[Rfam]
RNA sequence: GAGUGCAUUUGCUUGGCGAGCCUAACCCGACCAUCGGGGAAGGCACAGGGAAACCGAUACGGCCGCAGUCUUACGACCAGGGCCACCGUGUUCAAGCGCGGGGAGUCAAGCGGAUGCGACCCGAAACCGGGUGAUCUACGCGUGGGCAGGGUGAAGCGUACCGAAAGGCACGUGGAGGCCCGUUAGGGGUGGUGUCCUACAAUACCCUCCCGUGACCUAUGCGUAGGGGUGAAAGGCCCAUCGAACCCGGCAACAGCUGGUU
Numbered sequence: 001g002a003g004u005g006c007a008u009u010u011g012c013u014u015g016g017c018g019a020g021c022c023u024a025a026c027c028c029g030a031c032c033a034u035c036g037g038g039g040a041a042g043g044c045a046c047a048g049g050g051a052a053a054c055c056g057a058u059a060c061g062g063c064c065g066c067a068g069u070c071u072u073a074c075g076a077c078c079a080g081g082g083c084c085a086c087c088g089u090g091u092u093c094a095a096g097c098g099c100g101g102g103g104a105g106u107c108a109a110g111c112g113g114a115u116g117c118g119a120c121c122c123g124a125a126a127c128c129g130g131g132u133g134a135u136c137u138a139c140g141c142g143u144g145g146g147c148a149g150g151g152u153g154a155a156g157c158g159u160a161c162c163g164a165a166a167g168g169c170a171c172g173u174g175g176a177g178g179c180c181c182g183u184u185a186g187g188g189g190u191g192g193u194g195u196c197c198u199a200c201a202a203u204a205c206c207c208u209c210c211c212g213u214g215a216c217c218u219a220u221g222c223g224u225a226g227g228g229g230u231g232a233a234a235g236g237c238c239c240a241u242c243g244a245a246c247c248c249g250g251c252a253a254c255a256g257c258u259g260g261u262u
Stems, first nucleotide, its partner, number of pairs: 005117013020044004026038004048055002061084004068077003087100004120260002123257001127250006136226011147214001149181004156173004161168002186211004191207002194205002228238003

Rfam assigns this 262-nucleotide part of an RNA from Haloplanus salinarum to the family "Archaeal large subunit ribosomal RNA". The family's consensus secondary structure is taken from published work.